[Rfam]
RNA sequence: CGGGUCGGUCGGGCGAUCGCGUCGCCUCCCAGCGAGGCGCCGAGGAAAGUCCGGACUCCACAGGGCAGCGUGGUGGGUAACACCCACCCGGGGCAACCCGCGGGACAGUGCCACAGAAAGCAGACCGCCAGCGGCUCUGGUGAACCCCGUGGUUCAUCGGAGUGCGGGUGAGGGUGAAAGGGUGGUGUAAGAGACCACCAGCUCCGCAGGUGACUGCGGAGGCUAGGUAAACCCCACGUGGAGCAAGGCCAAGAAGGGCGAUGGGCAACCGUCGUCCGCGCGAGCGUUCGAGGGCUGCCCGCCCGAGCUCGCGGGUAGGCCGCUGGAGGUGCCCGGCAACGAGCACCGUAGAUGGAUGAUCGCACUCGACAGAAUCCGGCUUACAUGACCGGCCCGUUCC
Number, nucleotide and partner (000 for none) at each position: 001c396002g395003g394004g393005u392006c391007g390008g389009u388010c387011g384012g000013g363014c362015g361016a360017u359018c358019g000020c042021g041022u000023c039024g038025c037026c036027u035028c034029c000030c000031a000032g000033c000034g028035a027036g026037g025038c024039g023040c000041c021042g020043a000044g000045g000046a000047a382048a381049g380050u000051c379052c378053g377054g376055a375056c243057u242058c241059c240060a000061c000062a000063g300064g299065g298066c297067a000068g239069c238070g237071u236072g235073g087074u086075g085076g084077g083078u000079a000080a000081c000082a000083c077084c076085c075086a074087c073088c102089c100090g099091g098092g097093g000094c000095a000096a000097c092098c091099c090100g089101c000102g088103g234104g233105a000106c000107a000108g232109u231110g228111c227112c226113a000114c000115a000116g000117a000118a000119a000120g000121c000122a000123g000124a000125c173126c172127g169128c168129c167130a000131g165132c164133g163134g000135c000136u000137c000138u000139g000140g000141u000142g000143a000144a000145c000146c000147c000148c000149g000150u000151g000152g000153u000154u000155c000156a000157u000158c000159g000160g000161a000162g000163u133164g132165c131166g000167g129168g128169u127170g000171a000172g126173g125174g000175u000176g000177a000178a000179a000180g000181g199182g198183u197184g196185g195186u194187g000188u000189a000190a000191g000192a000193g000194a186195c185196c184197a183198c182199c181200a000201g223202c221203u220204c219205c218206g217207c216208a215209g214210g000211u000212g000213a000214c209215u208216g207217c206218g205219g204220a203221g202222g000223c201224u000225a000226g112227g111228u110229a000230a000231a109232c108233c104234c103235c072236a071237c070238g069239u068240g059241g058242a057243g056244c000245a000246a000247g321248g320249c319250c318251a000252a000253g000254a000255a000256g000257g000258g000259c000260g000261a000262u000263g000264g000265g000266c000267a000268a000269c000270c000271g000272u000273c000274g000275u000276c000277c000278g000279c000280g312281c311282g310283a309284g308285c307286g000287u000288u000289c000290g000291a000292g304293g303294g302295c301296u000297g066298c065299c064300c063301g295302c294303c293304c292305g000306a000307g285308c284309u283310c282311g281312c280313g000314g000315g000316u000317a000318g250319g249320c248321c247322g000323c000324u000325g000326g000327a000328g347329g346330u345331g344332c343333c000334c341335g340336g000337c000338a000339a000340c335341g334342a000343g332344c331345a330346c329347c328348g000349u000350a000351g000352a000353u000354g000355g000356a000357u000358g018359a017360u016361c015362g014363c013364a000365c000366u000367c000368g000369a000370c000371a000372g000373a000374a000375u055376c054377c053378g052379g051380c049381u048382u047383a000384c011385a000386u000387g010388a009389c008390c007391g006392g005393c004394c003395c002396g001397u000398u000399c000400c000
Rfam assigns this 400-nucleotide RNA from Kribbella antiqua to the family "Bacterial RNase P class A".
Its Rfam clan is "RNaseP clan".
It scores 280 bits against the family's covariance model.
About the family: Ribonuclease P (RNase P) is a ubiquitous endoribonuclease, found in archaea, bacteria and eukarya as well as chloroplasts and mitochondria.